Small nucleolar RNA Z122: an 86-nucleotide RNA from Trema orientale. The organism belongs to Trema, within Eukaryota. The base pairs follow the family's consensus structure, which was predicted with PFOLD. Rfam 15.1 lists 822 matches to the family in 247 species. A search with the family's covariance model found it, with a score of 56 bits. By type it is a C/D-box small nucleolar RNA. Its family is annotated with RNA processing and nucleolus in the Gene Ontology.

[Rfam]
RNA sequence: UUUGUGAGAUGAUGACGCAAUUUAAGGGAUUUAUCAAAGCAACAGCAAUGCUGAAUUGUUUCUUUGCACGUCAGUCUGAUCCCAAA
Numbered sequence: 001u002u003u004g005u006g007a008g009a010u011g012a013u014g015a016c017g018c019a020a021u022u023u024a025a026g027g028g029a030u031u032u033a034u035c036a037a038a039g040c041a042a043c044a045g046c047a048a049u050g051c052u053g054a055a056u057u058g059u060u061u062c063u064u065u066g067c068a069c070g071u072c073a074g075u076c077u078g079a080u081c082c083c084a085a086a
Stems, first nucleotide, its partner, number of pairs: 001086004006081002